[Rfam]
The record is a 219-nucleotide RNA sequence from Actinoplanes derwentensis, which matches "Actinobacteria sRNA Ms_IGR-5" in Rfam. The pairing is the family consensus, mapped onto this sequence.
RNA sequence: ACACGUGAAGGGAGGUGGUCCAGAGUUGAGUAGCACUGGGACUCGUGAGGUGGCUGUCCGCUAGCCGCUGUCCUUGACAGCUUUGGUUGUUUUAAAAGAAGUCGAGACCGUGUGGCAGCGGCCCGGCAAAACCAGACAGCCACCCGACCCCUGGGGAUCCGGCCUAGUCCGACCGGACCUCGCUGCUUGCGGCGAGGAAAUCCCCAGGGGUCGCUUCAU
Numbered sequence: 001a002c003a004c005g006u007g008a009a010g011g012g013a014g015g016u017g018g019u020c021c022a023g024a025g026u027u028g029a030g031u032a033g034c035a036c037u038g039g040g041a042c043u044c045g046u047g048a049g050g051u052g053g054c055u056g057u058c059c060g061c062u063a064g065c066c067g068c069u070g071u072c073c074u075u076g077a078c079a080g081c082u083u084u085g086g087u088u089g090u091u092u093u094a095a096a097a098g099a100a101g102u103c104g105a106g107a108c109c110g111u112g113u114g115g116c117a118g119c120g121g122c123c124c125g126g127c128a129a130a131a132c133c134a135g136a137c138a139g140c141c142a143c144c145c146g147a148c149c150c151c152u153g154g155g156g157a158u159c160c161g162g163c164c165u166a167g168u169c170c171g172a173c174c175g176g177a178c179c180u181c182g183c184u185g186c187u188u189g190c191g192g193c194g195a196g197g198a199a200a201u202c203c204c205c206a207g208g209g210g211u212c213g214c215u216u217c218a219u
Stems, first nucleotide, its partner, number of pairs: 014058006060127003064123001065121001067119004072114001145213013159176004164171001